[Rfam]
RNA sequence: UCAGCAGUACUAAAGUGCUUAUAGUGCAGGUAGUUUUCUCCUAUCUACUGCAAUGUGAGCACUUGAAGUACUUCUAA
Numbered sequence: 001u002c003a004g005c006a007g008u009a010c011u012a013a014a015g016u017g018c019u020u021a022u023a024g025u026g027c028a029g030g031u032a033g034u035u036u037u038c039u040c041c042u043a044u045c046u047a048c049u050g051c052a053a054u055g056u057g058a059g060c061a062c063u064u065g066a067a068g069u070a071c072u073u074c075u076a077a
Stems, first nucleotide, its partner, number of pairs: 004074001006072002009069003013064011025052003029049005
Record summary
This 77-nucleotide RNA sequence from Dicentrarchus labrax belongs to the Rfam family "mir-17 microRNA precursor family". For this family Rfam cites "Identification of novel genes coding for small expressed RNAs" (Lagos-Quintana et al., Science, 2001). Rfam's curators write: This family represents the microRNA (miRNA) precursor mir-17, family, which includes mir-20, mir-91, and mir-103. miRNAs are transcribed as ~70nt precursors (modelled here) and subsequently processed by the Dicer enzyme to give a ~22nt product. NCBI's taxonomy places the organism under Eukaryota, Gnathostomata, Teleostei, Euteleosteomorpha, Dicentrarchus. Its family is annotated with miRNA-mediated post-transcriptional gene silencing and RISC complex in the Gene Ontology. It scores 74 bits against the family's covariance model. The family's consensus secondary structure was predicted with RNAalifold.